RNA sequence: UCCCGCAGCCCUUCUUGGGCGUUUCCUCCCUAGACUUCGGGCCGUCCUUCGGGGCGGCCUUUUUUUGUCCGCGGU
Numbered sequence: 001u002c003c004c005g006c007a008g009c010c011c012u013u014c015u016u017g018g019g020c021g022u023u024u025c026c027u028c029c030c031u032a033g034a035c036u037u038c039g040g041g042c043c044g045u046c047c048u049u050c051g052g053g054g055c056g057g058c059c060u061u062u063u064u065u066u067g068u069c070c071g072c073g074g075u
Base pairs, nucleotide, nucleotide: 008020009019010018011017039060040059041058042057043056044055045054046053047052
RNA: Makes More Granules Regulator RNA (mmgR)
Organism: Methylorubrum extorquens